Notes: A member of the RNA family "mir-1388 microRNA precursor family" from Pogona vitticeps, 94 nucleotides long. The family has 12 seed sequences and 600 matches in Rfam 15.1. A reference for the family is Soares et al. (2009), "Parallel DNA pyrosequencing unveils new zebrafish microRNAs", BMC Genomics.

RNA sequence: CAGGGAGGAGUGUUUCACGGACUGUCCAACCUGAGAAUGGUGAAUCCCAAAAGGUCAAUCUCAGGUCCGUCAGCCCAUGAGACGCUUGCUCCAG
Numbered sequence: 001c002a003g004g005g006a007g008g009a010g011u012g013u014u015u016c017a018c019g020g021a022c023u024g025u026c027c028a029a030c031c032u033g034a035g036a037a038u039g040g041u042g043a044a045u046c047c048c049a050a051a052a053g054g055u056c057a058a059u060c061u062c063a064g065g066u067c068c069g070u071c072a073g074c075c076c077a078u079g080a081g082a083c084g085c086u087u088g089c090u091c092c093a094g
Stems, first nucleotide, its partner, number of pairs: 005091003008087009019076002022073003026069001029066008038057002